[Rfam]
RNA: mir-1302 microRNA precursor family
RNA sequence: AUUUUAAUAUAAAUAUGUCCUAUGCAAUAUUUGGGAUACACUUAUACUAAAA
Numbered sequence: 001a002u003u004u005u006a007a008u009a010u011a012a013a014u015a016u017g018u019c020c021u022a023u024g025c026a027a028u029a030u031u032u033g034g035g036a037u038a039c040a041c042u043u044a045u046a047c048u049a050a051a052a
Stems, first nucleotide, its partner, number of pairs: 006048001008046005014040001016038001018036004022031001